Record summary: mir-216 microRNA precursor family: a 76-nucleotide RNA sequence from Dipodomys ordii.
[Rfam]
RNA sequence: AAUUGGCUUAAUCUCAGCUGGCAACUGUGAGAUGUUCACAUAAUCCCUCACAGUGGUCUCUGGGGUUGUGCUAAAC
Number, nucleotide and partner (000 for none) at each position: 001a000002a000003u074004u073005g072006g071007c070008u000009u068010a067011a066012u065013c064014u063015c062016a061017g060018c000019u000020g058021g057022c056023a054024a000025c000026u052027g051028u050029g049030a048031g047032a000033u000034g000035u000036u000037c000038a000039c000040a000041u000042a000043a000044u000045c000046c000047c031048u030049c029050a028051c027052a026053g000054u023055g000056g022057u021058c020059u000060c017061u016062g015063g014064g013065g012066u011067u010068g009069u000070g007071c006072u005073a004074a003075a000076c000
Its family is annotated with miRNA-mediated post-transcriptional gene silencing and RISC complex in the Gene Ontology. The family is grouped with related families in Rfam's "mir-216 clan".